[Rfam]
RNA sequence: ACGGGCUUUUAUUACUGACGGAUUAUGUGGAUAAAACCACAGGGGAAAAAAGCCUUGAAUUAAGCCGACCGUCUGGGCAGCAUUU
Numbered sequence: 001a002c003g004g005g006c007u008u009u010u011a012u013u014a015c016u017g018a019c020g021g022a023u024u025a026u027g028u029g030g031a032u033a034a035a036a037c038c039a040c041a042g043g044g045g046a047a048a049a050a051a052g053c054c055u056u057g058a059a060u061u062a063a064g065c066c067g068a069c070c071g072u073c074u075g076g077g078c079a080g081c082a083u084u085u
Base pairs, nucleotide, nucleotide: 003055004054005053006052007051009050010049012047015044016043017073018072019071020070021069027040028039029038030037064078065077066076
The record is an 85-nucleotide RNA sequence from Caproiciproducens galactitolivorans, which matches "ZMP/ZTP riboswitch aptamer (pfl RNA motif)" in Rfam. It scores 60 bits against the family's covariance model.